[Rfam]
RNA: MIR6152 microRNA precursor family
RNA sequence: UGGACAGAUUAUUGUAUUCGACUGUAUUCACGGCGUGAAACAGGGGAUUACACCGUCUUUAAACGGAAAGUAAAUCAAUUAACAUAAUUGUAUUGG
Numbered sequence: 001u002g003g004a005c006a007g008a009u010u011a012u013u014g015u016a017u018u019c020g021a022c023u024g025u026a027u028u029c030a031c032g033g034c035g036u037g038a039a040a041c042a043g044g045g046g047a048u049u050a051c052a053c054c055g056u057c058u059u060u061a062a063a064c065g066g067a068a069a070g071u072a073a074a075u076c077a078a079u080u081a082a083c084a085u086a087a088u089u090g091u092a093u094u095g096g
Stems, first nucleotide, its partner, number of pairs: 003094002009090001011088005017082002020080002023077002026075003030071002034065003037059002040056002043053001